[Rfam]
RNA sequence: GGAAUUUUUUUCGAUAUAGAACACUCAUGUCGAUAAAAUGAAAAUGGCUUGAA
Numbered sequence: 001g002g003a004a005u006u007u008u009u010u011u012c013g014a015u016a017u018a019g020a021a022c023a024c025u026c027a028u029g030u031c032g033a034u035a036a037a038a039u040g041a042a043a044a045u046g047g048c049u050u051g052a053a
Stems, first nucleotide, its partner, number of pairs: 011033007

The family of this 53-nucleotide RNA sequence is "Plastid-atpF group II-D1 intron".
For this family Rfam cites "Retrograde signaling in plants: A critical review focusing on the GUN pathway and beyond" (Richter et al., Plant Commun, 2023).
Rfam links the family to the GO term Group II intron splicing.
The family has 49 seed sequences and 1,372 matches in Rfam 15.1.